[Rfam]
Description: The family of this 64-nucleotide RNA from Myotis davidii is "mir-9242 microRNA precursor family". NCBI's taxonomy places the organism under Eukaryota, Metazoa, Eumetazoa, Mammalia, Myotis. Pairs were carried over by alignment from the consensus structure, which was predicted with RNAalifold. A search with the family's covariance model found it, with a score of 69 bits.

RNA sequence: GGCCUCCCUCUUUGGGGCGAUCGAUCCUGGAGCCCCACGAUCGAUCACCCCAAAGAGGGAGGCC
Numbered sequence: 001g002g003c004c005u006c007c008c009u010c011u012u013u014g015g016g017g018c019g020a021u022c023g024a025u026c027c028u029g030g031a032g033c034c035c036c037a038c039g040a041u042c043g044a045u046c047a048c049c050c051c052a053a054a055g056a057g058g059g060a061g062g063c064c
Stems, first nucleotide, its partner, number of pairs: 001064017019046008028037003
Dot-bracket structure: (((((((((((((((((.((((((((.(((....))).)))))))).)))))))))))))))))